[Rfam]
RNA: Burkholderia RNA 11
Organism: Ralstonia pseudosolanacearum
RNA sequence: GCAACCUGAAGCUGGCCAGCAACCAGCGCGCGGUGUUCCUGAGCCUGCUCGGCAUCUCGUGGCUGUGGUUCGUCGGCGCGACCUUCCUGACCUCAUUCUUCGCCUUUGCUCGCAACGUGCUC
Numbered sequence: 001g002c003a004a005c006c007u008g009a010a011g012c013u014g015g016c017c018a019g020c021a022a023c024c025a026g027c028g029c030g031c032g033g034u035g036u037u038c039c040u041g042a043g044c045c046u047g048c049u050c051g052g053c054a055u056c057u058c059g060u061g062g063c064u065g066u067g068g069u070u071c072g073u074c075g076g077c078g079c080g081a082c083c084u085u086c087c088u089g090a091c092c093u094c095a096u097u098c099u100u101c102g103c104c105u106u107u108g109c110u111c112g113c114a115a116c117g118u119g120c121u122c
Base pairs, nucleotide, nucleotide: 010049011048012047014044017041018040019039021037022036023035051121052120053119054118055117057115059113060112061111062110065103067099068098072094075091077089078088080087